The family of this 210-nucleotide part of an RNA from Monosporascus ibericus is "Ascomycota telomerase RNA".
[Rfam]
RNA sequence: UCCUCCACAGUUCUCCGAUUCCCAUUUUCCGAAAGGAAUGUCUUCGGACCCCUCGGUUCGUCCGAUACCCACACGGCGCGUCGCAGUUCGGGGUCAGUGGGACCUAAUGUUCAUGCCGCGUGUGGAUCGCCGUGUGAGGGUGGCUAGCUGGCUAGCUUGCGAGACCCGCUGUUGGGAAUGGCGUUUCGGAACUUAACCCUAAGCUAUCAU
Numbered sequence: 001u002c003c004u005c006c007a008c009a010g011u012u013c014u015c016c017g018a019u020u021c022c023c024a025u026u027u028u029c030c031g032a033a034a035g036g037a038a039u040g041u042c043u044u045c046g047g048a049c050c051c052c053u054c055g056g057u058u059c060g061u062c063c064g065a066u067a068c069c070c071a072c073a074c075g076g077c078g079c080g081u082c083g084c085a086g087u088u089c090g091g092g093g094u095c096a097g098u099g100g101g102a103c104c105u106a107a108u109g110u111u112c113a114u115g116c117c118g119c120g121u122g123u124g125g126a127u128c129g130c131c132g133u134g135u136g137a138g139g140g141u142g143g144c145u146a147g148c149u150g151g152c153u154a155g156c157u158u159g160c161g162a163g164a165c166c167c168g169c170u171g172u173u174g175g176g177a178a179u180g181g182c183g184u185u186u187c188g189g190a191a192c193u194u195a196a197c198c199c200u201a202a203g204c205u206a207u208c209a210u
Stems, first nucleotide, its partner, number of pairs: 009193003015189004

Pairs were carried over by alignment from the consensus structure.
Its family is annotated with telomerase catalytic core complex, telomere maintenance via telomerase and telomerase activity in the Gene Ontology.
It is annotated as a non-coding RNA gene.
It scores 352 bits against the family's covariance model.